[Rfam]
RNA sequence: CACCGUUGGACCACACCCCAAACCGAGACCUAUAGGGUGUCUAAAUCACGUCUCUCAUACCUCAGCUAAGGGUGCUGAGGAAUAGUAACUCCA
Numbered sequence: 001c002a003c004c005g006u007u008g009g010a011c012c013a014c015a016c017c018c019c020a021a022a023c024c025g026a027g028a029c030c031u032a033u034a035g036g037g038u039g040u041c042u043a044a045a046u047c048a049c050g051u052c053u054c055u056c057a058u059a060c061c062u063c064a065g066c067u068a069a070g071g072g073u074g075c076u077g078a079g080g081a082a083u084a085g086u087a088a089c090u091c092c093a
Base pairs, nucleotide, nucleotide: 014039015038016037017036018035025054026053027052028051029050060080061079062078063077064076065075066074
This 93-nucleotide RNA sequence belongs to the Rfam family "PhotoRC-II RNA". Rfam's curators put it in the seed alignment. Pairs were carried over by alignment from the consensus structure, which is taken from published work. Rfam classes the family as a cis-regulatory element.